[Rfam]
The record is a 166-nucleotide sequence from Secundilactobacillus similis, which matches "M-box riboswitch aptamer (ykoK leader)" in Rfam. Pairs were carried over by alignment from the consensus structure. The organism belongs to Secundilactobacillus similis, within Bacteria.
RNA sequence: AGAAUAAGCCGUUAGGUGAGGCUCCUAUACGGAAAACGCUACUGCUCAGAAACGUCGAAAAACGCCAAUGAGUCAGCUGUCCGAGUUAAAAAAAGGCUCGGUCUAAUGUAGCUGUUAUCUGAUAACUACGCCGUAUAGUGCUAAAGCUCAACGAUUGGCUAUAACA
Dot-bracket structure: ......(((((([.(((..(((..((((((((.....(((((.(((((....(((......)))....))))).....(.((..(((......])))..)).)....))))).(((.......)))....)))))))).)))...)))..))....))))......
Its family is annotated with response to magnesium ion and regulation of gene expression in the Gene Ontology.